[Rfam]
RNA: MIR390 microRNA precursor family
RNA sequence: CGGUAGAAUCCGUAAAGCUCAGGAGGGAUAGCGCCAUUGAUCAUCUUGAUUGUAAUUCUCCACCACUGUGGUAAUUACUGGUUGUGGAGGAUCUAUGGCGCUAUCCAUCCUGAGUUUCAUGGUUUCUAUAG
Numbered sequence: 001c002g003g004u005a006g007a008a009u010c011c012g013u014a015a016a017g018c019u020c021a022g023g024a025g026g027g028a029u030a031g032c033g034c035c036a037u038u039g040a041u042c043a044u045c046u047u048g049a050u051u052g053u054a055a056u057u058c059u060c061c062a063c064c065a066c067u068g069u070g071g072u073a074a075u076u077a078c079u080g081g082u083u084g085u086g087g088a089g090g091a092u093c094u095a096u097g098g099c100g101c102u103a104u105c106c107a108u109c110c111u112g113a114g115u116u117u118c119a120u121g122g123u124u125u126c127u128a129u130a131g
Base pairs, nucleotide, nucleotide: 010122016116017115018114019113020112021111022110023109024108026106027105028104029103030102031101032100033099034098035097036096037095